[Rfam]
RNA: Small nucleolar RNA Z157/R69/R10
RNA sequence: GUUGGUACUGUGAUGAGGCAGUAUAUGUGGAACUAGAGUUUCUGAUCUGGUAUCUGAACCAGAAUCUGAAGACUAACCCUUGGCUGUCUGAGCUUAAC
Numbered sequence: 001g002u003u004g005g006u007a008c009u010g011u012g013a014u015g016a017g018g019c020a021g022u023a024u025a026u027g028u029g030g031a032a033c034u035a036g037a038g039u040u041u042c043u044g045a046u047c048u049g050g051u052a053u054c055u056g057a058a059c060c061a062g063a064a065u066c067u068g069a070a071g072a073c074u075a076a077c078c079c080u081u082g083g084c085u086g087u088c089u090g091a092g093c094u095u096a097a098c
Stems, first nucleotide, its partner, number of pairs: 001098004008092001039071004046064001047062005
Dot-bracket structure: ((((...(..............................((((...((((((......))))).)...))))....................)..))))